[Rfam]
RNA: Plastid-psbA-2 3UTR RNA
Organism: Kingdonia uniflora
RNA sequence: UUGAAGGAGCAAUACCCACCCUCUUGAUAGAACAAGAACUUGGGUAUUGCUCCUUCAUUUAG
Numbered sequence: 001u002u003g004a005a006g007g008a009g010c011a012a013u014a015c016c017c018a019c020c021c022u023c024u025u026g027a028u029a030g031a032a033c034a035a036g037a038a039c040u041u042g043g044g045u046a047u048u049g050c051u052c053c054u055u056c057a058u059u060u061a062g
Stems, first nucleotide, its partner, number of pairs: 002057017022037005